[Rfam]
RNA sequence: CCAAAACUAGCCACUUGUCAUUUUCUGUUGGUUCUUAGUGUAUUAAAAUUUUCUAAGAACCAAUUAGAAAAUGAAAAGUGGGUAGUUUUUA
Numbered sequence: 001c002c003a004a005a006a007c008u009a010g011c012c013a014c015u016u017g018u019c020a021u022u023u024u025c026u027g028u029u030g031g032u033u034c035u036u037a038g039u040g041u042a043u044u045a046a047a048a049u050u051u052u053c054u055a056a057g058a059a060c061c062a063a064u065u066a067g068a069a070a071a072u073g074a075a076a077a078g079u080g081g082g083u084a085g086u087u088u089u090u091a
Base pairs, nucleotide, nucleotide: 003089004088005087006086007085008084009083011081012080013079014078015077016076018074019073020072021071022070023069024068025067026066027065028063029062030061031060032059033058034057035056036055037054038053
A member of the RNA family "MIR6288 microRNA precursor family" from Prunus dulcis, 91 nucleotides long. Its family is annotated with RISC complex and miRNA-mediated post-transcriptional gene silencing in the Gene Ontology. Taxonomically the source falls in Prunus (Eukaryota, Mesangiospermae, rosids, Rosaceae). A search with the family's covariance model found it, with a score of 84 bits. The family has 3 seed sequences and 293 matches in Rfam 15.1.